[Rfam]
RNA sequence: AGUGAUGGUAGAGGAGCAAAAACCAAGAGUAAACCACCUGAGAAGCAGGAGCUUUUAAGACGGUGGCGGAAAGGGGAUUUUUGCCGAAGUGCGAAGAAACUCCUGAAUCUUCAAGCUGGACCUGCAUUGAACAAAUGCAGGGCUGUCACGCUUUUCUUCCCGGGAGGAGCGUGGAGAACUAUCUCACAG
Number, nucleotide and partner (000 for none) at each position: 001a000002g000003u000004g000005a000006u000007g183008g182009u181010a180011g179012a000013g000014g000015a000016g084017c083018a082019a081020a080021a079022a000023c076024c075025a000026a000027g000028a000029g000030u000031a000032a000033a000034c066035c065036a064037c063038c062039u000040g000041a000042g000043a000044a000045g000046c000047a000048g000049g000050a000051g000052c000053u000054u000055u000056u000057a000058a000059g000060a000061c000062g038063g037064u036065g035066g034067c000068g000069g000070a000071a000072a000073g000074g000075g024076g023077a000078u000079u021080u020081u019082u018083g017084c016085c000086g000087a000088a117089g116090u115091g000092c000093g112094a111095a110096g109097a108098a000099a000100c000101u000102c000103c000104u000105g000106a000107a000108u097109c096110u095111u094112c093113a000114a000115g090116c089117u088118g144119g143120a000121c141122c140123u139124g138125c137126a136127u135128u134129g000130a000131a000132c000133a000134a128135a127136u126137g125138c124139a123140g122141g121142g000143c119144u118145g000146u174147c173148a172149c171150g170151c169152u168153u167154u166155u165156c000157u000158u000159c000160c000161c000162g000163g000164g000165a155166g154167g153168a152169g151170c150171g149172u148173g147174g146175a000176g000177a000178a000179c011180u010181a009182u008183c007184u000185c000186a000187c000188a000189g000